U5 spliceosomal RNA: a 122-nucleotide sequence from Tropilaelaps mercedesae. From the family's description: U5 RNA is a component of both types of known spliceosome. NCBI's taxonomy places the organism under Eukaryota, Protostomia, Parasitiformes, Laelapidae, Tropilaelaps. It is annotated as a spliceosomal small nuclear RNA. The match comes from Rfam's covariance-model search (72 bits).
RNA sequence: UCGCUCAGGUCUCCCAGCAUCGACGAAUAUGCGUUUCGCCUUUUACUAAACGCAUCCGUGCUGGGGGACACUUACAAUGAGCCUAAAUGGCAAUUUUAAUCUUAUAUCUUAUUAUCUUUAAU
Number, nucleotide and partner (000 for none) at each position: 001u000002c000003g082004c081005u080006c079007a000008g000009g069010u068011c067012u066013c065014c064015c063016a062017g061018c060019a059020u000021c000022g000023a000024c000025g000026a000027a000028u000029a055030u054031g053032c052033g051034u050035u049036u048037c000038g000039c000040c000041u000042u000043u000044u000045a000046c000047u000048a036049a035050a034051c033052g032053c031054a030055u029056c000057c000058g000059u019060g018061c017062u016063g015064g014065g013066g012067g011068a010069c009070a000071c000072u000073u000074a000075c000076a000077a000078u000079g006080a005081g004082c003083c000084u000085a000086a000087a000088u000089g000090g000091c000092a000093a000094u000095u000096u000097u000098a000099a000100u000101c000102u000103u000104a000105u000106a000107u000108c000109u000110u000111a122112u121113u120114a119115u000116c000117u000118u000119u114120a113121a112122u111